[Rfam]
RNA sequence: GCUAAGCACUUACAACUGUUUGCAGAGGAAACUGAGACUUUAUAAUUAUGUCUCAGUCUCAUCUGCAAAGAAGUGAUUUUUC
Number, nucleotide and partner (000 for none) at each position: 001g000002c000003u000004a000005a081006g080007c000008a078009c000010u076011u075012a074013c073014a000015a000016c000017u071018g000019u069020u068021u067022g066023c065024a064025g063026a062027g000028g060029a059030a000031a057032c056033u055034g054035a053036g052037a051038c000039u000040u000041u050042a049043u048044a000045a000046u000047u000048a043049u042050g041051u037052c036053u035054c034055a033056g032057u031058c000059u029060c028061a000062u026063c025064u024065g023066c022067a021068a020069a019070g000071a017072a000073g013074u012075g011076a010077u000078u008079u000080u006081u005082c000
RNA: mir-452 microRNA precursor family
Organism: Mesocricetus auratus